[Rfam]
RNA sequence: GUUCAGGCGGGAGAAGCUGUAGCGAUUAUGUGCUUGUAACAAUCAUAAGCGUAUAGCAUUUCCCCUUUGAAC
Numbered sequence: 001g002u003u004c005a006g007g008c009g010g011g012a013g014a015a016g017c018u019g020u021a022g023c024g025a026u027u028a029u030g031u032g033c034u035u036g037u038a039a040c041a042a043u044c045a046u047a048a049g050c051g052u053a054u055a056g057c058a059u060u061u062c063c064c065c066u067u068u069g070a071a072c
Stems, first nucleotide, its partner, number of pairs: 003070005009064003013060002017056005026048005